[Rfam]
RNA sequence: GAGUGACUAUUAGCGCCAGGACCAUACAAUAGGUUGACGAGGUUUGGCAGUUAUCGAGAGACUCGGCGGAUUCUGCCACGGCUUUGUAGAGAUACAACAGGAGAGUCGUCAAGGGGAAAGCAAAAAGCAGAAUAAAUACUGUAACAGAGGUUCCCCCAGCUCCGGCA
Numbered sequence: 001g002a003g004u005g006a007c008u009a010u011u012a013g014c015g016c017c018a019g020g021a022c023c024a025u026a027c028a029a030u031a032g033g034u035u036g037a038c039g040a041g042g043u044u045u046g047g048c049a050g051u052u053a054u055c056g057a058g059a060g061a062c063u064c065g066g067c068g069g070a071u072u073c074u075g076c077c078a079c080g081g082c083u084u085u086g087u088a089g090a091g092a093u094a095c096a097a098c099a100g101g102a103g104a105g106u107c108g109u110c111a112a113g114g115g116g117a118a119a120g121c122a123a124a125a126a127g128c129a130g131a132a133u134a135a136a137u138a139c140u141g142u143a144a145c146a147g148a149g150g151u152u153c154c155c156c157c158a159g160c161u162c163c164g165g166c167a
Stems, first nucleotide, its partner, number of pairs: 020035004045078005054066004079108006113157004118152002127142004132137001
RNA: glmS glucosamine-6-phosphate activated ribozyme aptamer